[Rfam]
RNA sequence: UAAGGAGGAUGAUGAGACACGGAAUUAAUUUCCGAGGAAAGUCCGAACUCCACGAAGGAGAAUAGGAAAGUUAAUGACUUUUGAAGUAAUUCAAGGAAAGUACCACAGAAAUAUACCGCCAGUGAAUUCUGGUAAGGGUGAAAAAGUGAGGUAAGAGCUUACUAAAAUUAAGUAUUUAUUAAGGUAAACCCCCUAUGGAGCAAGUUAUAAAUUCUCUUAAGGUCCUCGCUUGAGAAUUGGUGAACGCAGAAAUCUUACAGUAAUGUAAGAUUAAGAUAGAUGUCUCUUAAAACAGAAUUCGGCUUACUUCUCCUUAUUUA
Numbered sequence: 001u002a003a004g005g006a007g008g009a010u011g012a013u014g015a016g017a018c019a020c021g022g023a024a025u026u027a028a029u030u031u032c033c034g035a036g037g038a039a040a041g042u043c044c045g046a047a048c049u050c051c052a053c054g055a056a057g058g059a060g061a062a063u064a065g066g067a068a069a070g071u072u073a074a075u076g077a078c079u080u081u082u083g084a085a086g087u088a089a090u091u092c093a094a095g096g097a098a099a100g101u102a103c104c105a106c107a108g109a110a111a112u113a114u115a116c117c118g119c120c121a122g123u124g125a126a127u128u129c130u131g132g133u134a135a136g137g138g139u140g141a142a143a144a145a146g147u148g149a150g151g152u153a154a155g156a157g158c159u160u161a162c163u164a165a166a167a168u169u170a171a172g173u174a175u176u177u178a179u180u181a182a183g184g185u186a187a188a189c190c191c192c193c194u195a196u197g198g199a200g201c202a203a204g205u206u207a208u209a210a211a212u213u214c215u216c217u218u219a220a221g222g223u224c225c226u227c228g229c230u231u232g233a234g235a236a237u238u239g240g241u242g243a244a245c246g247c248a249g250a251a252a253u254c255u256u257a258c259a260g261u262a263a264u265g266u267a268a269g270a271u272u273a274a275g276a277u278a279g280a281u282g283u284c285u286c287u288u289a290a291a292a293c294a295g296a297a298u299u300c301g302g303c304u305u306a307c308u309u310c311u312c313c314u315u316a317u318u319u320a
Stems, first nucleotide, its partner, number of pairs: 001316009011307001012288001014286005020034005039305003043302005048200004057227002060224001062196005067081005082094001083092003095191002100189002102185003116137002118133005145163006167180001169178003204245003211237006220230002252271008

A member of the RNA family "Bacterial RNase P class A", 320 nucleotides long.